[Rfam]
Description:
The family of this 122-nucleotide RNA from Clostridium botulinum is "Ribosomal protein L20 leader". The source organism's lineage runs through Bacteria, Bacillati, Bacillota, Clostridia and Clostridium botulinum C.

Nucleotides: 122
Stems, first nucleotide, its partner, number of pairs: 011028006030053003035048002037045002093109007
Number, partner (000 for none) and nucleotide at each position: 001000u002000u003000c004000g005000u006000u007000a008000a009000g010000a011028a012027g013026a014025a015024a016023c017000u018000a019000a020000g021000c022000u023016g024015u025014u026013u027012c028011u029000c030053a031052c032051c033000u034000u035048a036047c037045a038044g039000c040000a041000u042000u043000g044038c045037u046000a047036g048035u049000a050000a051032g052031g053030u054000u055000a056000u057000a058000c059000a060000u061000u062000c063000a064000u065000u066000u067000u068000g069000a070000u071000u072000u073000g074000u075000u076000u077000u078000g079000u080000g081000u082000g083000a084000a085000u086000u087000g088000u089000a090000u091000a092000g093109g094108a095107c096106g097105g098104c099103u100000u101000a102000a103099a104098g105097c106096c107095g108094u109093c110000c111000u112000u113000u114000u115000u116000a117000u118000u119000u120000u121000g122000u
The literature on the family includes a 1994 paper in Prog Nucleic Acid Res Mol Biol by Zengel and Lindahl, "Diverse mechanisms for regulating ribosomal protein synthesis in Escherichia coli".